[Rfam]
RNA sequence: CGCAAUCCGUUGGGGUGCCGCAAGGCUGAGAGGUGAAAACCGACCCAUCGAACCUGAUCCGGGUCGUACCGGCGUAGGGAACGGAACCAAGCAUCGG
Numbered sequence: 001c002g003c004a005a006u007c008c009g010u011u012g013g014g015g016u017g018c019c020g021c022a023a024g025g026c027u028g029a030g031a032g033g034u035g036a037a038a039a040c041c042g043a044c045c046c047a048u049c050g051a052a053c054c055u056g057a058u059c060c061g062g063g064u065c066g067u068a069c070c071g072g073c074g075u076a077g078g079g080a081a082c083g084g085a086a087c088c089a090a091g092c093a094u095c096g097g
Base pairs, nucleotide, nucleotide: 006085007084008083009082010081011047012046013045014044017026018025019024033040034039053078054077055076056075059072060071061070062069
Shown here is a 97-nucleotide RNA sequence from Sulfitobacter sp. D7, a member of the family "TPP riboswitch aptamer (THI element)". Gene Ontology term of the family: thiamine pyrophosphate binding.